[Rfam]
Molybdenum/Tungsten riboswitch aptamer (Moco RNA motif): a 133-nucleotide sequence from Desulfosporosinus orientis.
RNA sequence: AUUAAAUAGUAUCUCCGAGCCAGAGUGACCUAAGGAUUAUGUCUAUGGUCCCUGGACAGGACUCUAAGUCCUCAGGGUGUUCUUGGAAACGAGUGUGCCUUCACAUUUUGAAAAGGAGUAAGGUGUAGACUAG
Numbered sequence: 001a002u003u004a005a006a007u008a009g010u011a012u013c014u015c016c017g018a019g020c021c022a023g024a025g026u027g028a029c030c031u032a033a034g035g036a037u038u039a040u041g042u043c044u045a046u047g048g049u050c051c052c053u054g055g056a057c058a059g060g061a062c063u064c065u066a067a068g069u070c071c072u073c074a075g076g077g078u079g080u081u082c083u084u085g086g087a088a089a090c091g092a093g094u095g096u097g098c099c100u101u102c103a104c105a106u107u108u109u110g111a112a113a114a115g116g117a118g119u120a121a122g123g124u125g126u127a128g129a130c131u132a133g
Base pairs, nucleotide, nucleotide: 003127004126006124013118014117015116016115020055021054022053023052025050028049029048030047034044035043036042037041058072059071060070061069062068075100076099077098078097079096080095082093083092084091085090101111102110